[Rfam]
RNA sequence: AGAGGCUGCAAGGGUGAGGCCAUAGCAAAAGCGCUCAUGGUGCGGCCCUGUCAUUCCAAUGAAUCAGCAAAUUCUGCU
Dot-bracket structure: ............(....((((..[[[[.[[(((.......))))))))...(((((....))))..)....]].]]]]